[Rfam]
RNA sequence: CAAGGGAACGCUGAAAACCUUUAACAGAGUAAGCA
Number, nucleotide and partner (000 for none) at each position: 001c000002a021003a020004g019005g018006g000007a000008a000009c000010g034011c033012u032013g000014a000015a000016a000017a000018c005019c004020u003021u002022u000023a000024a000025c000026a000027g000028a000029g000030u000031a000032a012033g011034c010035a000
RNA: DUF805b RNA